[Rfam]
Shown here is a 100-nucleotide RNA sequence from Lacticaseibacillus sharpeae, a member of the family "PyrR binding site".
The literature on the family includes a 2001 paper in Nucleic Acids Res by Bonner et al., "Molecular recognition of pyr mRNA by the Bacillus subtilis attenuation regulatory protein PyrR".
The family's consensus secondary structure is taken from published work.
Taxonomically the source falls in Lacticaseibacillus sharpeae (Bacteria, Bacilli, Lactobacillaceae, Lacticaseibacillus).

RNA sequence: AAAUCCUUUAACAACAGUCCCGCGAGGCUGUAAAGGAGUCGACGACUGGUUGCGACCGGUAAGCACUUAGACUUCCACUUGCGGGUGGGAGUCUUUUUUU
Dot-bracket structure: ...((((((....((((((......)))))))))))).......((((((....))))))........(((((((((((....)))))))))))......